A member of the RNA family "Group II catalytic intron D1-D4-6" from Desulfonema magnum, 422 nucleotides long. It scores 76 bits against the family's covariance model. The literature on the family includes a 2001 paper in Trends Genet by Bonen and Vogel, "The ins and outs of group II introns".

RNA sequence: AAAAUCCCACCCUGCCAAAGUAUGGCCGACAGGUAGGCAGCCAACCUCACAGGCAAACCUGGUAACAGGAGUCUGAAGCUGAGGAAGGCAGGAAUGCAGGCUUUGUAUUGAGCCCUGGGGUGAUGAAAAUGUCACAAACCGGGCUGACAAUUGCGAUCCCAUUUUUAUUCCGCAAAUUUUUUAUGACUUAAAAAUCAGGAAGUUAAAAAAUGAGGGGAACAAAAACGGGAUCAGCUUUUUCAGAGCCUUGGAAACAUUUUCAUCACCCCAAUUGAGCCCCGAAAUGGGUAUAGUCGUGGACAUAAGGAUAAACCUCCGGGAAACCGGGGGGAAAAGCCGACGUUGUUCAACGAACGGAAGGCAGCAGUCCCGAAUGCGACAAACACGGCGAGUGUUCGGGACACCACCGGGGUCUGAGACCG
Number, nucleotide and partner (000 for none) at each position: 001a000002a000003a000004a000005u000006c000007c000008c000009a000010c000011c000012c036013u035014g034015c033016c032017a000018a000019a000020g030021u029022a000023u391024g000025g389026c388027c000028g000029a021030c020031a000032g016033g015034u014035a013036g012037g000038c091039a000040g089041c088042c000043a000044a000045c084046c083047u082048c000049a000050c075051a074052g073053g072054c071055a000056a000057a000058c069059c068060u067061g066062g000063u000064a000065a000066c061067a060068g059069g058070a000071g054072u053073c052074u051075g050076a000077a000078g000079c000080u000081g000082a047083g046084g045085a000086a000087g000088g041089c040090a000091g038092g000093a000094a000095u000096g000097c000098a000099g000100g000101c000102u000103u000104u000105g000106u000107a000108u000109u000110g000111a000112g000113c000114c000115c000116u000117g000118g000119g000120g000121u000122g000123a000124u000125g000126a000127a000128a000129a000130u000131g000132u000133c000134a000135c000136a000137a000138a000139c000140c000141g000142g000143g000144c000145u000146g000147a000148c000149a000150a000151u000152u000153g000154c000155g000156a000157u000158c000159c000160c000161a000162u000163u000164u000165u000166u000167a000168u000169u000170c000171c000172g000173c000174a000175a000176a000177u000178u000179u000180u000181u000182u000183a000184u000185g000186a000187c000188u000189u000190a000191a000192a000193a000194a000195u000196c000197a000198g000199g000200a000201a000202g000203u000204u000205a000206a000207a000208a000209a000210a000211u000212g000213a000214g000215g000216g000217g000218a000219a000220c000221a000222a000223a000224a000225a000226c000227g000228g000229g000230a000231u000232c000233a000234g000235c000236u000237u000238u000239u000240u000241c000242a000243g000244a000245g000246c000247c000248u000249u000250g000251g000252a000253a000254a000255c000256a000257u000258u000259u000260u000261c000262a000263u000264c000265a000266c000267c000268c000269c000270a000271a000272u000273u416274g414275a000276g413277c412278c411279c410280c409281g408282a000283a000284a000285u000286g000287g000288g000289u000290a000291u000292a000293g000294u000295c000296g407297u406298g405299g404300a000301c000302a000303u000304a000305a000306g000307g000308a000309u000310a000311a000312a000313c000314c000315u000316c000317c000318g000319g000320g000321a000322a000323a000324c000325c000326g000327g000328g000329g000330g000331g000332a000333a000334a000335a000336g362337c361338c360339g000340a000341c356342g355343u354344u353345g000346u000347u000348c000349a000350a000351c000352g000353a344354a343355c342356g341357g000358a000359a000360g338361g337362c336363a000364g000365c000366a000367g402368u401369c400370c399371c398372g397373a396374a395375u394376g393377c392378g000379a000380c000381a000382a000383a000384c000385a000386c000387g000388g026389c025390g000391a023392g377393u376394g375395u374396u373397c372398g371399g370400g369401a368402c367403a000404c299405c298406a297407c296408c281409g280410g279411g278412g277413u276414c274415u000416g273417a000418g000419a000420c000421c000422g000

About the family: Group II introns are found in rRNA, tRNA and mRNA of organelles in fungi, plants and protists, and also in mRNA in bacteria.